Rfam assigns this 87-nucleotide RNA sequence from Clostridium sp. DL-VIII to the family "c-di-GMP-I riboswitch aptamer". The organism belongs to Clostridium, within Bacteria. A search with the family's covariance model found it, with a score of 70 bits.
[Rfam]
Nucleotides: 087
Stems, first nucleotide, its partner, number of pairs: 012037002017032006040081004045077003048072003055066002
Number, partner (000 for none) and nucleotide at each position: 001000u002000a003000u004000u005000g006000a007000u008000a009000a010000u011000a012037g013036u014000a015000c016000a017032c018031u019030u020029a021028u022027u023000g024000a025000a026000a027022g028021g029020u030019a031018a032017g033000g034000u035000c036013a037012c038000a039000a040081a041080g042079c043078c044000a045077u046076g047075g048072g049071u050070c051000u052000a053000a054000g055066g056065a057000a058000u059000g060000u061000u062000a063000u064000g065056u066055c067000u068000a069000u070050g071049a072048u073000u074000g075047c076046c077045a078043g079042g080041c081040u082000a083000c084000u085000a086000a087000g